Shown here is a 324-nucleotide RNA sequence from Rhinopomastus cyanomelas, a member of the family "7SK RNA". On this family, see Blencowe, Curr Biol 2002: "Transcription: surprising role for an elusive small nuclear RNA". The match comes from Rfam's covariance-model search (258 bits). NCBI's taxonomy places the organism under Eukaryota, Vertebrata, Saurischia, Bucerotiformes, Rhinopomastus. 7SK was discovered as an abundant small nuclear RNA in the mid-70s but a possible function has only recently been suggested.
[Rfam]
Nucleotides: 324
Base pairs, nucleotide, nucleotide: 003102005101006100007099008098010096013093014092018090019089024087025086026085029082030081031080032079033078035074036073037070038069039068042067043066044065045064047061116162118135119134121132123131136158137157143154144153145152196266197265198264202260203259205257206256208254209253210252217248218247219246220245223243224242225241226240227239289324290323291322293319295317296316297315298312300310301309302308
Number, partner (000 for none) and nucleotide at each position: 001000a002000u003102a004000u005101g006100u007099g008098a009000g010096g011000g012000c013093g014092a015000u016000c017000u018090g019089g020000c021000u022000g023000c024087g025086a026085c027000u028000u029082c030081u031080g032079u033078c034000a035074c036073c037070c038069c039068a040000c041000u042067g043066a044065u045064c046000a047061c048000c049000a050000u051000g052000g053000c054000u055000g056000a057000u058000u059000c060000u061047g062000c063000u064045g065044a066043u067042c068039u069038g070037g071000c072000u073036g074035g075000c076000u077000g078033g079032g080031u081030a082029g083000c084000u085026g086025u087024c088000c089019c090018c091000u092014u093013c094000c095000u096010c097000g098008u099007c100006a101005c102003u103000c104000c105000a106000u107000g108000u109000a110000c111000g112000u113000c114000c115000c116162u117000c118135c119134c120000a121132a122000a123131g124000c125000u126000g127000c128000g129000u130000a131123c132121u133000c134119g135118g136158u137157c138000a139000a140000a141000g142000a143154g144153g145152a146000u147000g148000a149000c150000c151000u152145u153144u154143c155000c156000c157137g158136a159000u160000a161000a162116a163000a164000a165000c166000a167000u168000a169000g170000u171000g172000u173000u174000c175000a176000u177000c178000g179000g180000u181000c182000a183000a184000g185000g186000g187000u188000a189000u190000a191000c192000a193000g194000u195000a196266g197265c198264u199000g200000c201000g202260c203259u204000c205257c206256c207000a208254u209253g210252c211000u212000a213000g214000a215000a216000c217248c218247u219246c220245c221000a222000a223243a224242c225241a226240a227239g228000c229000u230000c231000a232000a233000g234000g235000u236000c237000c238000a239227u240226u241225u242224g243223u244000a245220g246219g247218a248217g249000a250000a251000c252210g253209u254208a255000g256206g257205g258000u259203a260202g261000u262000c263000a264198a265197g266196c267000u268000u269000c270000c271000a272000a273000g274000a275000c276000u277000g278000c279000a280000g281000a282000c283000a284000c285000a286000u287000c288000c289324a290323a291322g292000u293319g294000a295317g296316g297315c298312a299000c300310u301309g302308c303000a304000u305000u306000g307000g308302g309301c310300a311000a312298u313000c314000u315297g316296c317295c318000a319293u320000u321000g322291u323290u324289u

The family's consensus secondary structure is taken from published work.